About this RNA: A member of the RNA family "Small nucleolar RNA SNORA79" from Molossus molossus, 142 nucleotides long. A reference for the family is Schattner et al. (2006), "A computational screen for mammalian pseudouridylation guide H/ACA RNAs", RNA. Gene Ontology terms of the family: nucleolus and RNA processing. By type it is an H/ACA-box small nucleolar RNA. Taxonomically the source falls in Molossus (Eukaryota, Metazoa, Tetrapoda, Boreoeutheria). A search with the family's covariance model found it, with a score of 110 bits. About the family: ACA65 (SNORA79) is a member of the H/ACA class of snoRNAs that guide the sites of modification of uridines to pseudouridines. This snoRNA was identified by computational screening and its expression in mouse experimentally verified by Northern blot and primer extension analysis. The family's consensus secondary structure was predicted with RNAalifold.
[Rfam]
RNA sequence: GGAGGACUGUUCCUCCUCCUGCCUUCAGACCUGGCACUGGGACUGUGGGUCAUCGGAGAUUGACACUGAUUUCCUUCACUCAGAGAAUAUCCGGAUAAAGGAUUAUCUGUGUGUGCUCUGGAAUUUGCGGAAUCAGACACUU
Numbered sequence: 001g002g003a004g005g006a007c008u009g010u011u012c013c014u015c016c017u018c019c020u021g022c023c024u025u026c027a028g029a030c031c032u033g034g035c036a037c038u039g040g041g042a043c044u045g046u047g048g049g050u051c052a053u054c055g056g057a058g059a060u061u062g063a064c065a066c067u068g069a070u071u072u073c074c075u076u077c078a079c080u081c082a083g084a085g086a087a088u089a090u091c092c093g094g095a096u097a098a099a100g101g102a103u104u105a106u107c108u109g110u111g112u113g114u115g116c117u118c119u120g121g122a123a124u125u126u127g128c129g130g131a132a133u134c135a136g137a138c139a140c141u142u
Stems, first nucleotide, its partner, number of pairs: 002054002005051004014042004020036004068134006080121006087114003093108005